[Rfam]
Nucleotides: 084
Base pairs, nucleotide, nucleotide: 006046007045008044009043010042012040013039014038015037018034019033021031059084060083061082062081064079065078066077067076068075
Number, partner (000 for none) and nucleotide at each position: 001000u002000a003000a004000a005000u006046a007045g008044u009043a010042g011000u012040u013039a014038u015037u016000u017000c018034u019033u020000u021031a022000u023000a024000g025000c026000g027000u028000u029000c030000c031021u032000u033019a034018a035000a036000g037015a038014a039013u040012a041000u042010c043009u044008a045007u046006u047000c048000a049000u050000u051000c052000c053000c054000a055000c056000u057000u058000u059084g060083c061082u062081u063000c064079u065078g066077a067076u068075u069000c070000c071000c072000a073000c074000a075068g076067a077066u078065c079064a080000a081062a082061a083060g084059c